This 139-nucleotide RNA from Arachnia propionica belongs to the Rfam family "FMN riboswitch aptamer (RFN element)".

RNA sequence: CCGACGCAUCCGGGGUCGGUGAAAGUCCGAACCGGCGGUGACAGUCCGCGACCCUCGCGGCCCAGUUUGAACGGGCCAACAGGUUGAUCCGGUGAAACUCCGGGACCGACAGUGAAAGUCUGGAUGGGAGGAGCGCGUC
Numbered sequence: 001c002c003g004a005c006g007c008a009u010c011c012g013g014g015g016u017c018g019g020u021g022a023a024a025g026u027c028c029g030a031a032c033c034g035g036c037g038g039u040g041a042c043a044g045u046c047c048g049c050g051a052c053c054c055u056c057g058c059g060g061c062c063c064a065g066u067u068u069g070a071a072c073g074g075g076c077c078a079a080c081a082g083g084u085u086g087a088u089c090c091g092g093u094g095a096a097a098c099u100c101c102g103g104g105a106c107c108g109a110c111a112g113u114g115a116a117a118g119u120c121u122g123g124a125u126g127g128g129a130g131g132a133g134c135g136c137g138u139c
Stems, first nucleotide, its partner, number of pairs: 005135003009131002017029003031119002033108002035049004044106002053083002088104005110122003
It scores 87 bits against the family's covariance model.